[Rfam]
RNA sequence: UGGCUUCAUGAUUGAUUAAUUUUCUCGAUGCCGAUAUAUGUUUAAUAUUUAAACCAAAUUGAUGACUUUUUUGUGUGUGUCUGAGCUAA
Numbered sequence: 001u002g003g004c005u006u007c008a009u010g011a012u013u014g015a016u017u018a019a020u021u022u023u024c025u026c027g028a029u030g031c032c033g034a035u036a037u038a039u040g041u042u043u044a045a046u047a048u049u050u051a052a053a054c055c056a057a058a059u060u061g062a063u064g065a066c067u068u069u070u071u072u073g074u075g076u077g078u079g080u081c082u083g084a085g086c087u088a089a
Stems, first nucleotide, its partner, number of pairs: 001088004
small nucleolar RNA snoR126: an 89-nucleotide RNA sequence from Cocos nucifera. Lineage of the source: Eukaryota > Viridiplantae > Streptophyta > Tracheophyta > Cocos. The base pairs follow the family's consensus structure, which was predicted with RNAalifold. Rfam 15.1 lists 423 matches to the family in 200 species. Gene Ontology terms of the family: RNA processing and nucleolus. By type it is a C/D-box small nucleolar RNA.